[Rfam]
Nucleotides: 079
Stems, first nucleotide, its partner, number of pairs: 012076001013044006045063003049059003064075003
Number, partner (000 for none) and nucleotide at each position: 001000a002000u003000a004000a005000u006000g007000a008000u009000a010000c011000u012076u013044c014043c015042g016041u017040c018039u019000a020000g021000c022000c023000a024000c025000a026000g027000u028000u029000a030000u031000c032000g033000c034000a035000a036000u037000g038000g039018g040017g041016g042015c043014g044013g045063c046062u047061u048000g049059c050058a051057g052000u053000g054000a055000u056000c057051c058050u059049g060000g061047a062046a063045g064075g065074g066073g067000c068000g069000a070000c071000a072000g073066c074065c075064u076012a077000u078000g079000u
The family of this 79-nucleotide RNA sequence from Paenibacillus athensensis is "pemK RNA". It is annotated as a cis-regulatory element. It scores 48 bits against the family's covariance model.